[Rfam]
Nucleotides: 185
Stems, first nucleotide, its partner, number of pairs: 003081004008076003015070004020064003024061002027054004032049003093112002099105002120180003124176005130170002136164003140160004146155003
Number, partner (000 for none) and nucleotide at each position: 001000a002000u003081g004080g005079u006078c007000u008076g009075g010074g011000g012000a013000a014000a015070g016069g017068c018067u019000c020064c021063u022062g023000u024061g025060u026000u027054g028053u029052u030051g031000a032049a033048c034047c035000c036000g037000c038000c039000c040000a041000g042000u043000c044000c045000u046000g047034g048033g049032u050000g051030c052029a053028g054027c055000c056000u057000u058000c059000u060025a061024c062022c063021a064020g065000a066000c067018a068017g069016c070015c071000c072000a073000a074010c075009c076008c077000u078006g079005a080004c081003c082000u083000a084000a085000a086000g087000a088000a089000a090000a091000u092000u093112c094111c095000c096000a097000u098000a099105a100104g101000u102000c103000u104100u105099u106000c107000c108000c109000u110000a111094g112093g113000a114000u115000u116000u117000g118000a119000a120180u121179u122178u123000c124176c125175a126174g127173u128172a129000a130170c131169a132000g133000g134000u135000g136164u137163g138162a139000g140160c141159a142158u143157u144000u145000u146155a147154g148153c149000a150000g151000u152000a153148g154147u155146u156000g157143g158142a159141u160140g161000u162138u163137c164136a165000u166000g167000u168000a169131u170130g171000a172128u173127a174126c175125u176124g177000c178122a179121a180120a181000c182000a183000g184000g185000a
Rfam assigns this 185-nucleotide sequence from Propithecus coquereli to the family "Small Cajal body specific RNA 16". The organism belongs to Propithecus, within Eukaryota. It is annotated as a small Cajal body RNA. Gene Ontology terms of the family: nucleolus and RNA processing. The literature on the family includes a 2002 paper in EMBO J by Darzacq et al., "Cajal body-specific small nuclear RNAs: a novel class of 2'-O-methylation and pseudouridylation guide RNAs". scaRNAs are a specific class of small nuclear RNAs which localise to the Cajal bodies and guide the modification of RNA polymerase II transcribed spliceosomal RNAs U1, U2, U4, U5 and U12. ACA47 belongs to the H/ACA box class of guide RNAs as it has the predicted hairpin-hinge-hairpin-tail structure, the conserved H/ACA-box motifs and is found associated with GAR1. ACA47 is predicted to guide the pseudouridylation of residue U5 of the U1 spliceosomal snRNA. The family's consensus secondary structure was predicted with RNAfold. The match comes from Rfam's covariance-model search (180 bits).